[Rfam]
RNA: terC RNA
Organism: Phytoamicus setariae
RNA sequence: ACAGGAUUCCGGGCCCCUCUGACGUGACUCCCGGACAGUCACGUGAUGUCGGAAUGAACAA
Numbered sequence: 001a002c003a004g005g006a007u008u009c010c011g012g013g014c015c016c017c018u019c020u021g022a023c024g025u026g027a028c029u030c031c032c033g034g035a036c037a038g039u040c041a042c043g044u045g046a047u048g049u050c051g052g053a054a055u056g057a058a059c060a061a
Stems, first nucleotide, its partner, number of pairs: 006055007022044008